This 102-nucleotide RNA sequence from Mesobacillus persicus belongs to the Rfam family "Purine riboswitch aptamer". Rfam links the family to the GO term purine nucleobase biosynthetic process. The organism belongs to Mesobacillus, within Bacteria. The family's consensus secondary structure is taken from published work.
[Rfam]
RNA sequence: UAAUUUAAUAGUAUACACCUUCGUAUAACAUCGAUAAUAGGGAUCGAAAGUUUCUACCAAAUCACCGUAAAUGAUUUGACUAUGAAGGCAGAGAAUAUUCGG
Numbered sequence: 001u002a003a004u005u006u007a008a009u010a011g012u013a014u015a016c017a018c019c020u021u022c023g024u025a026u027a028a029c030a031u032c033g034a035u036a037a038u039a040g041g042g043a044u045c046g047a048a049a050g051u052u053u054c055u056a057c058c059a060a061a062u063c064a065c066c067g068u069a070a071a072u073g074a075u076u077u078g079a080c081u082a083u084g085a086a087g088g089c090a091g092a093g094a095a096u097a098u099u100c101g102g
Stems, first nucleotide, its partner, number of pairs: 018088008031047005058078007